[Rfam]
The family of this 61-nucleotide RNA from Yonghaparkia sp. Root332 is "msiK RNA". Pairs were carried over by alignment from the consensus structure, which is taken from published work. Rfam classes the family as a cis-regulatory element.

RNA sequence: GUCAUCAAUCCAUUCACAACGGAUCGUCCGGCACGUACCUGCCGGUGAAGAGGAGAGUUAA
Number, nucleotide and partner (000 for none) at each position: 001g000002u000003c000004a000005u000006c000007a000008a000009u000010c052011c000012a000013u049014u048015c047016a046017c000018a000019a000020c000021g000022g000023a000024u000025c000026g000027u000028c045029c044030g043031g042032c041033a040034c000035g000036u000037a000038c000039c000040u033041g032042c031043c030044g029045g028046u016047g015048a014049a013050g000051a000052g010053g000054a000055g000056a000057g000058u000059u000060a000061a000